[Rfam]
RNA sequence: AUCGUUCAUCUUGUCGCGGUGCUGCUGUUAGGUGCUUUUGGCAAGACGGAAGUAGGGUCAUCCCGAAGGAACGCGCC
Number, nucleotide and partner (000 for none) at each position: 001a000002u000003c073004g072005u071006u070007c069008a000009u046010c045011u044012u043013g042014u041015c040016g039017c000018g000019g000020u000021g000022c000023u000024g000025c000026u000027g000028u000029u000030a000031g000032g000033u000034g000035c000036u000037u000038u000039u016040g015041g014042c013043a012044a011045g010046a009047c000048g000049g074050a000051a000052g000053u000054a000055g064056g063057g062058u000059c000060a000061u000062c057063c056064c055065g000066a000067a000068g000069g007070a006071a005072c004073g003074c049075g000076c000077c000

A member of the RNA family "Glutamine riboswitch aptamer (glnA leader)" from Leptolyngbyaceae cyanobacterium M33_DOE_097, 77 nucleotides long. Its family is annotated with glutamine binding in the Gene Ontology. For this family Rfam cites "Bacterial aptamers that selectively bind glutamine" (Ames and Breaker, RNA Biol, 2011). Taxonomically the source falls in Leptolyngbyaceae (Bacteria, Bacillati, Cyanobacteriota, Leptolyngbyales).